[Rfam]
RNA sequence: UUGGUUUAAAUCAUUGUGGGCUACAUUUUAAAAAUUGAACACAUACAAAGUAGUGAGACAUACAUUGAUUUCAUCCAA
Numbered sequence: 001u002u003g004g005u006u007u008a009a010a011u012c013a014u015u016g017u018g019g020g021c022u023a024c025a026u027u028u029u030a031a032a033a034a035u036u037g038a039a040c041a042c043a044u045a046c047a048a049a050g051u052a053g054u055g056a057g058a059c060a061u062a063c064a065u066u067g068a069u070u071u072c073a074u075c076c077a078a
Stems, first nucleotide, its partner, number of pairs: 001078004006073001008071006015064004022055002025051005
Dot-bracket structure: ((((.(.((((((.((((...((.(((((.................)))))..)).....)))).)))))).).))))
The record is a 78-nucleotide RNA sequence from Medicago truncatula, which matches "MIR5269 microRNA precursor family" in Rfam. Lineage of the source: Eukaryota > Tracheophyta > Pentapetalae > Trifolieae > Medicago.